Glycine riboswitch aptamer: a 105-nucleotide RNA sequence from Amantichitinum ursilacus.
RNA sequence: GGAAAAAACUCUGAAGAGCGGCGCGGAAAUUACGCGCACACCGAAGGGGCUAAGGGGCGGCAACUGCGCCCUGAAAAUCUCAGGUGCCAGGACAGAGGGGUGUAG
Number, nucleotide and partner (000 for none) at each position: 001g000002g000003a000004a000005a000006a000007a000008a000009c097010u096011c095012u094013g093014a000015a000016g000017a000018g000019c000020g000021g037022c036023g035024c000025g000026g000027a000028a000029a000030u000031u000032a000033c000034g000035c023036g022037c021038a000039c000040a085041c084042c083043g081044a080045a000046g000047g079048g078049g000050c000051u000052a000053a072054g071055g070056g069057g000058c000059g000060g000061c000062a000063a000064c000065u000066g000067c000068g000069c056070c055071c054072u053073g000074a000075a000076a000077a000078u048079c047080u044081c043082a000083g042084g041085u040086g000087c000088c000089a000090g000091g000092a000093c013094a012095g011096a010097g009098g000099g000100g000101u000102g000103u000104a000105g000

Source information: The match comes from Rfam's covariance-model search (44 bits).